[Rfam]
RNA: Small nucleolar RNA SNORD17
RNA sequence: GUGAAGUGAUGAUGAAUCCAUUCUCAGAGUGCUACUGCAUUGCCCUCCCUUCAGCAUGCAGAUUCCUGUUCUUGGGUCCCCGUGCUGUGCAGCCUCCAAAUACCCUCCAGCCUUUCAUUGUUUUAUUGGGAGCCGCUGGUGCGGCCAGCUCUGUGCAGGAGAGGGGCAGAGCCAGCAGGGCGGGAGCCCCUCUUCAUAGGGCUCUGUCUCAACCAAGAUGAGUGAUGCUGUCUGAUCAC
Numbered sequence: 001g002u003g004a005a006g007u008g009a010u011g012a013u014g015a016a017u018c019c020a021u022u023c024u025c026a027g028a029g030u031g032c033u034a035c036u037g038c039a040u041u042g043c044c045c046u047c048c049c050u051u052c053a054g055c056a057u058g059c060a061g062a063u064u065c066c067u068g069u070u071c072u073u074g075g076g077u078c079c080c081c082g083u084g085c086u087g088u089g090c091a092g093c094c095u096c097c098a099a100a101u102a103c104c105c106u107c108c109a110g111c112c113u114u115u116c117a118u119u120g121u122u123u124u125a126u127u128g129g130g131a132g133c134c135g136c137u138g139g140u141g142c143g144g145c146c147a148g149c150u151c152u153g154u155g156c157a158g159g160a161g162a163g164g165g166g167c168a169g170a171g172c173c174a175g176c177a178g179g180g181c182g183g184g185a186g187c188c189c190c191u192c193u194u195c196a197u198a199g200g201g202c203u204c205u206g207u208c209u210c211a212a213c214c215a216a217g218a219u220g221a222g223u224g225a226u227g228c229u230g231u232c233u234g235a236u237c238a239c
Stems, first nucleotide, its partner, number of pairs: 010238004019224005025217001029213002035175003038171001040169006046162002049159002052155001053086006061080001064076003089154004094148002103141001104139001108135001110134001112132006119125002178210003183205003187201002